[Rfam]
RNA sequence: UUGACAGCCCUGGAGACUGAAGUCCUCUAUUUAUCCACAGGACAGGUACAGCAGCGGCAGUGCAAGCUACCCCCACACCGCCCCAUCAAUGUGCCUCAACUCUGACCUGGAGGGACCACCUCAAGAGGUGAGAGGGGAGUUCAGUCUCCAUGGCCCAUUCAAUCCUUGGCCUCU
Numbered sequence: 001u002u003g004a005c006a007g008c009c010c011u012g013g014a015g016a017c018u019g020a021a022g023u024c025c026u027c028u029a030u031u032u033a034u035c036c037a038c039a040g041g042a043c044a045g046g047u048a049c050a051g052c053a054g055c056g057g058c059a060g061u062g063c064a065a066g067c068u069a070c071c072c073c074c075a076c077a078c079c080g081c082c083c084c085a086u087c088a089a090u091g092u093g094c095c096u097c098a099a100c101u102c103u104g105a106c107c108u109g110g111a112g113g114g115a116c117c118a119c120c121u122c123a124a125g126a127g128g129u130g131a132g133a134g135g136g137g138a139g140u141u142c143a144g145u146c147u148c149c150a151u152g153g154c155c156c157a158u159u160c161a162a163u164c165c166u167u168g169g170c171c172u173c174u
Stems, first nucleotide, its partner, number of pairs: 002161003007154002011150011024137005030132006038104003048096001051094002056082003060078001107125002110122004

TUC338: a 174-nucleotide sequence from Anolis carolinensis. The source organism's lineage runs through Eukaryota, Metazoa, Amniota, Sauria and Anolis. By type it is a cis-regulatory element. It is one of the family's seed sequences.